RNA sequence: UUCACGCCCUCGUUAACGGAAUUCACACGGCCGCCCGAAUUCAGCCGUUGCGAUGCCGUGCCCGGCUUCCAAUCUCUCAUCAUAGCGUUGGGCCGGUGCACGUGGCGCAUCGGUUUCCCAGCCCCCCAGCCCCCCGCGGUGCUCGUGGACCGGCCUGACGUUACGUUCUAGGUUCAAUCCCCGAAUUGACCUUCAGGCCCGGCUCCCCCGCCGGGCCUUUU
Numbered sequence: 001u002u003c004a005c006g007c008c009c010u011c012g013u014u015a016a017c018g019g020a021a022u023u024c025a026c027a028c029g030g031c032c033g034c035c036c037g038a039a040u041u042c043a044g045c046c047g048u049u050g051c052g053a054u055g056c057c058g059u060g061c062c063c064g065g066c067u068u069c070c071a072a073u074c075u076c077u078c079a080u081c082a083u084a085g086c087g088u089u090g091g092g093c094c095g096g097u098g099c100a101c102g103u104g105g106c107g108c109a110u111c112g113g114u115u116u117c118c119c120a121g122c123c124c125c126c127c128a129g130c131c132c133c134c135c136g137c138g139g140u141g142c143u144c145g146u147g148g149a150c151c152g153g154c155c156u157g158a159c160g161u162u163a164c165g166u167u168c169u170a171g172g173u174u175c176a177a178u179c180c181c182c183g184a185a186u187u188g189a190c191c192u193u194c195a196g197g198c199c200c201g202g203c204u205c206c207c208c209c210g211c212c213g214g215g216c217c218u219u220u221u
Base pairs, nucleotide, nucleotide: 037175038054042050082169084167085166086165087164088163090155091154093152095150097148099147100146101145105142106141107140108139111136112135113134121130122129196217197216198215199214200213201212202211203210
About this RNA:
This 221-nucleotide RNA from Ancylobacter sp. TS-1 belongs to the Rfam family "Bradyrhizobiaceae sRNA BjrC174". A reference for the family is Madhugiri et al. (2012), "Small RNAs of the Bradyrhizobium/Rhodopseudomonas lineage and their analysis", RNA Biol. Rfam classes the family as a small RNA. It scores 58 bits against the family's covariance model. The source organism's lineage runs through Bacteria, Pseudomonadati, Pseudomonadota, Alphaproteobacteria and Ancylobacter.